[Rfam]
Overview:
Xanthomonadaceae sRNA sX13: a 115-nucleotide RNA sequence from Xanthomonas albilineans. The match comes from Rfam's covariance-model search (113 bits). Lineage of the source: Bacteria > Pseudomonadati > Gammaproteobacteria > Lysobacterales > Xanthomonas albilineans.
RNA sequence: AAUGCCUGUCGCGGAUCUUCUCCCAUCCCCUGGAGCAGAUCUAGGAACGGAGACUCCUCCCCAAGUCUGCGUUCCCUGGCCCCGCUGACCCACCCCUGGUCCGCGGGGCCUUUUU
Dot-bracket structure: ...(.(....))((((((.((((........)))).)))))).((((((.(((((........))))).))))))..((((((((.((((.......)))).)))))))).....
Numbered sequence: 001a002a003u004g005c006c007u008g009u010c011g012c013g014g015a016u017c018u019u020c021u022c023c024c025a026u027c028c029c030c031u032g033g034a035g036c037a038g039a040u041c042u043a044g045g046a047a048c049g050g051a052g053a054c055u056c057c058u059c060c061c062c063a064a065g066u067c068u069g070c071g072u073u074c075c076c077u078g079g080c081c082c083c084g085c086u087g088a089c090c091c092a093c094c095c096c097u098g099g100u101c102c103g104c105g106g107g108g109c110c111u112u113u114u115u
Stems, first nucleotide, its partner, number of pairs: 004012001006011001013042006020035004044075006051068005078110008087101004